This 73-nucleotide RNA sequence from Climacteris rufus belongs to the Rfam family "mir-122 microRNA precursor family". The literature on the family includes a 2002 paper in Curr Biol by Lagos-Quintana et al., "Identification of tissue-specific microRNAs from mouse". NCBI's taxonomy places the organism under Eukaryota, Teleostomi, Dinosauria, Australaves, Climacteris. Rfam 15.1 lists 666 matches to the family in 636 species.
[Rfam]
RNA sequence: CUGGGCUGUGGAGUGUGACAAUGGUGUUUGUGUGCUGCCAAUCAAACGCCAUUCUCACACUAAUUAGCUCUGG
Numbered sequence: 001c002u003g004g005g006c007u008g009u010g011g012a013g014u015g016u017g018a019c020a021a022u023g024g025u026g027u028u029u030g031u032g033u034g035c036u037g038c039c040a041a042u043c044a045a046a047c048g049c050c051a052u053u054c055u056c057a058c059a060c061u062a063a064u065u066a067g068c069u070c071u072g073g
Stems, first nucleotide, its partner, number of pairs: 012061007020053011